[Rfam]
RNA sequence: CAUGAUGCUGUCAGUAACAAGGAUUCAUCCUGUUGUGAGUUUGACAGACUGACAGGAAAUCAUUGCUACUGGAAGUGCAUGU
Numbered sequence: 001c002a003u004g005a006u007g008c009u010g011u012c013a014g015u016a017a018c019a020a021g022g023a024u025u026c027a028u029c030c031u032g033u034u035g036u037g038a039g040u041u042u043g044a045c046a047g048a049c050u051g052a053c054a055g056g057a058a059a060u061c062a063u064u065g066c067u068a069c070u071g072g073a074a075g076u077g078c079a080u081g082u
Base pairs, nucleotide, nucleotide: 011072012071013070014069015068016067018065019064022061023060024059025058029056030055031054032053033052034051035050037049
RNA: mir-459 microRNA precursor family